Rfam assigns this 169-nucleotide RNA sequence from Virgisporangium aliadipatigenens to the family "c-di-AMP riboswitch aptamer (ydaO/yuaA leader)". Taxonomically the source falls in Virgisporangium (Bacteria, Actinomycetota, Actinomycetes, Micromonosporales).
RNA sequence: CCACGUCCCGGGCCGAACGAACCGGGGAACCAUCGGGUGCCGGCACGCAGUGCCUGUUCGACUGCCGGCGCCAGGGGUGAAUCCGCGGCCGCCGCCAGCGGCACCGCGGUAGGGCCGUCUUCCCGCCCGAAUCCGUCAGCUAACCCGGUAGGCGGUGCGGAAGAAGGGU
Numbered sequence: 001c002c003a004c005g006u007c008c009c010g011g012g013c014c015g016a017a018c019g020a021a022c023c024g025g026g027g028a029a030c031c032a033u034c035g036g037g038u039g040c041c042g043g044c045a046c047g048c049a050g051u052g053c054c055u056g057u058u059c060g061a062c063u064g065c066c067g068g069c070g071c072c073a074g075g076g077g078u079g080a081a082u083c084c085g086c087g088g089c090c091g092c093c094g095c096c097a098g099c100g101g102c103a104c105c106g107c108g109g110u111a112g113g114g115c116c117g118u119c120u121u122c123c124c125g126c127c128c129g130a131a132u133c134c135g136u137c138a139g140c141u142a143a144c145c146c147g148g149u150a151g152g153c154g155g156u157g158c159g160g161a162a163g164a165a166g167g168g169u
Stems, first nucleotide, its partner, number of pairs: 001152002006020002021149006031074001075134003083109006112128004